[Rfam]
RNA sequence: AACAACGUUAUCAAUAUACCAUAGACAGCAACGGCCUAGUGCUUAAUCAGGUUGCCGAGGUAGAAAAUUCUAUUAAUAUGAACUUUCAAACCCAUGCUGUCUUUACGCGUGGGUUUUAAUUUAUGUUA
Numbered sequence: 001a002a003c004a005a006c007g008u009u010a011u012c013a014a015u016a017u018a019c020c021a022u023a024g025a026c027a028g029c030a031a032c033g034g035c036c037u038a039g040u041g042c043u044u045a046a047u048c049a050g051g052u053u054g055c056c057g058a059g060g061u062a063g064a065a066a067a068u069u070c071u072a073u074u075a076a077u078a079u080g081a082a083c084u085u086u087c088a089a090a091c092c093c094a095u096g097c098u099g100u101c102u103u104u105a106c107g108c109g110u111g112g113g114u115u116u117u118a119a120u121u122u123a124u125g126u127u128a
Stems, first nucleotide, its partner, number of pairs: 028055005034042002091113007099106002
This 128-nucleotide RNA from Anaerorhabdus furcosa belongs to the Rfam family "Ribosomal protein L10 leader". The match comes from Rfam's covariance-model search (65 bits).